[Rfam]
RNA sequence: AAGGGUCAAGUGAUGAUUGAUAACGCAUAGUUCAGAUGAUAAAAUCUAAAUGAUUACAUCUACUCAGCAUAGUCUUUCGCUCCUAUCUGAUGACCCUU
Numbered sequence: 001a002a003g004g005g006u007c008a009a010g011u012g013a014u015g016a017u018u019g020a021u022a023a024c025g026c027a028u029a030g031u032u033c034a035g036a037u038g039a040u041a042a043a044a045u046c047u048a049a050a051u052g053a054u055u056a057c058a059u060c061u062a063c064u065c066a067g068c069a070u071a072g073u074c075u076u077u078c079g080c081u082c083c084u085a086u087c088u089g090a091u092g093a094c095c096c097u098u
Stems, first nucleotide, its partner, number of pairs: 004095005
A member of the RNA family "Small nucleolar RNA snR60/Z15/Z230/Z193/J17" from Arabis alpina, 98 nucleotides long. The family has 23 seed sequences and 3,592 matches in Rfam 15.1. The base pairs follow the family's consensus structure. Its family is annotated with RNA processing and nucleolus in the Gene Ontology. The literature on the family includes a 2001 paper in Nucleic Acids Res by Qu et al., "Identification of 10 novel snoRNA gene clusters from Arabidopsis thaliana". It is annotated as a C/D-box small nucleolar RNA. Clan: SNORD77 clan.